This 81-nucleotide RNA from Paenibacillus spiritus belongs to the Rfam family "c-di-GMP-I-GGC riboswitch aptamer".
The family's consensus secondary structure is taken from published work.
NCBI's taxonomy places the organism under Bacteria, Bacillati, Bacillota, Paenibacillaceae, Paenibacillus.
RNA sequence: CAACGAAAAGGCAAACCUAUCGCGAGGUAGGGACGCAAAGCCAAGGGUCUUCUCUAUAAGAAGACAGCCUGGUUACCGAAA
Dot-bracket structure: ..........((...((((((....))))))..[))..((((.((((((.............))).]))))))).......
The family is grouped with related families in Rfam's "c-di-GMP_I riboswitch clan". For this family Rfam cites "Bioinformatic analysis of riboswitch structures uncovers variant classes with altered ligand specificity" (Weinberg et al., Proc Natl Acad Sci U S A, 2017).